[Rfam]
RNA sequence: UUUUCAUCAGGAGAUGGCAUUCCUCCGUUAACCGCCUUCCAGGCUGAUGAUGCCUACACAUCC
Dot-bracket structure: .........[[[[..((((((.]]]].......(((.....)))....)))))).........
Numbered sequence: 001u002u003u004u005c006a007u008c009a010g011g012a013g014a015u016g017g018c019a020u021u022c023c024u025c026c027g028u029u030a031a032c033c034g035c036c037u038u039c040c041a042g043g044c045u046g047a048u049g050a051u052g053c054c055u056a057c058a059c060a061u062c063c
Stems, first nucleotide, its partner, number of pairs: 010026004016054006034044003

The family of this 63-nucleotide RNA sequence from Klebsiella indica is "Fluoride riboswitch aptamer (crcB RNA motif)". Pairs were carried over by alignment from the consensus structure, which is taken from published work.